RNA sequence: UGUGUGGUUUAGGUAGUUUUAUGUUGUUGGGCAUUCACCUUUCUCUCUACAACAAGAAACUGCCUUAAUUACAUC
Numbered sequence: 001u002g003u004g005u006g007g008u009u010u011a012g013g014u015a016g017u018u019u020u021a022u023g024u025u026g027u028u029g030g031g032c033a034u035u036c037a038c039c040u041u042u043c044u045c046u047c048u049a050c051a052a053c054a055a056g057a058a059a060c061u062g063c064c065u066u067a068a069u070u071a072c073a074u075c
Base pairs, nucleotide, nucleotide: 003073004072005071006070007069008068009067011065012064013063014062015061016060017059018058019057022054023053024052025051026050027049029047030046031045
About this RNA: The record is a 75-nucleotide sequence from Xenopus tropicalis, which matches "mir-196 microRNA precursor family" in Rfam. NCBI's taxonomy places the organism under Eukaryota, Bilateria, Teleostomi, Euteleostomi, Silurana. Rfam links the family to the GO terms gene silencing by miRNA and RISC complex. The base pairs follow the family's consensus structure, which was predicted with PFOLD.